The record is a 106-nucleotide RNA from Chelatococcus composti, which matches "TPP riboswitch aptamer (THI element)" in Rfam. It scores 74 bits against the family's covariance model. Rfam describes the family as follows. Vitamin B(1) in its active form thiamin pyrophosphate (TPP) is an essential coenzyme that is synthesised by coupling of pyrimidine and thiazole moieties in bacteria.

[Rfam]
RNA sequence: AUGAUCUCCUUGGGGUGCCCGCAAGGCGGGCUGAGAGGCGCGACGCGCCAACCCAUCGAACCUGAACCGGGUCGUGCCGGCGGAGGAAUGCGAGAUGCGAAACGAC
Numbered sequence: 001a002u003g004a005u006c007u008c009c010u011u012g013g014g015g016u017g018c019c020c021g022c023a024a025g026g027c028g029g030g031c032u033g034a035g036a037g038g039c040g041c042g043a044c045g046c047g048c049c050a051a052c053c054c055a056u057c058g059a060a061c062c063u064g065a066a067c068c069g070g071g072u073c074g075u076g077c078c079g080g081c082g083g084a085g086g087a088a089u090g091c092g093a094g095a096u097g098c099g100a101a102a103c104g105a106c
Base pairs, nucleotide, nucleotide: 006094007093008092010090011055012054013053014052017031018030019029020028021027038048039047040046041045061086062085063084067080068079069078070077